[Rfam]
RNA sequence: CUGACGGGCGCGUCCGGGUCAAUUGCGGCCUGCAACACCCAAUCUCGCUGCCGGUGCCGGAUGGAUUGGCAGUCGGCGAGCGCGAGCGCGUCACCGUCAG
Numbered sequence: 001c002u003g004a005c006g007g008g009c010g011c012g013u014c015c016g017g018g019u020c021a022a023u024u025g026c027g028g029c030c031u032g033c034a035a036c037a038c039c040c041a042a043u044c045u046c047g048c049u050g051c052c053g054g055u056g057c058c059g060g061a062u063g064g065a066u067u068g069g070c071a072g073u074c075g076g077c078g079a080g081c082g083c084g085a086g087c088g089c090g091u092c093a094c095c096g097u098c099a100g
Base pairs, nucleotide, nucleotide: 001100002099003098004097005096008091009090010089011088012087013086016040017039018038023035024034025033026032027031043085044084046082047081049078050077051076052075053074054073
The record is a 100-nucleotide RNA sequence, which matches "L4-Archaeoglobi ribosomal protein leades" in Rfam. It is one of the family's seed sequences. Rfam classes the family as a cis-regulatory leader. The literature on the family includes a 2020 paper in BMC Microbiol by Eckert and Weinberg, "Discovery of 20 novel ribosomal leader candidates in bacteria and archaea". The family's consensus secondary structure is taken from published work.